Shown here is a 71-nucleotide sequence from Corvus brachyrhynchos, a member of the family "Small nucleolar RNA SNORD99". The family's RNA type in Rfam is C/D-box small nucleolar RNA. On this family, see Galardi et al., Mol Cell Biol 2002: "Purified box C/D snoRNPs are able to reproduce site-specific 2'-O-methylation of target RNA in vitro". Its Rfam clan is "SNORD58 clan". The family's consensus secondary structure was predicted with RNAalifold. NCBI's taxonomy places the organism under Eukaryota, Gnathostomata, Sauria, Coelurosauria, Corvus. Rfam links the family to the GO terms nucleolus and RNA processing.

[Rfam]
Nucleotides: 071
Stems, first nucleotide, its partner, number of pairs: 001070005
Number, partner (000 for none) and nucleotide at each position: 001070c002069c003068u004067g005066g006000u007000c008000c009000a010000u011000g012000a013000u014000g015000a016000c017000u018000c019000c020000u021000g022000a023000g024000u025000c026000u027000g028000g029000a030000g031000a032000c033000u034000g035000u036000u037000g038000g039000a040000u041000g042000a043000a044000u045000c046000c047000u048000g049000c050000g051000g052000a053000u054000a055000u056000g057000g058000g059000g060000c061000u062000g063000a064000g065000g066005c067004c068003g069002g070001g071000c